RNA sequence: UUUAAUCGAAGCCAAACUCGUCGUGAGGCGGGGUCGGAAAGCUACAGGUCUUCCAAGUGAAGAUGGCUGGGUUGCAUUG
Number, nucleotide and partner (000 for none) at each position: 001u000002u000003u000004a000005a000006u000007c000008g000009a000010a000011g000012c037013c036014a000015a000016a000017c032018u031019c030020g029021u028022c027023g000024u000025g000026a000027g022028g021029c020030g019031g018032g017033g000034u000035c000036g013037g012038a000039a000040a073041g072042c071043u070044a000045c069046a068047g067048g064049u063050c062051u061052u060053c059054c000055a000056a000057g000058u000059g053060a052061a051062g050063a049064u048065g000066g000067c047068u046069g045070g043071g042072u041073u040074g000075c000076a000077u000078u000079g000
RNA: c-di-GMP-I riboswitch aptamer
Organism: Methylophaga thalassica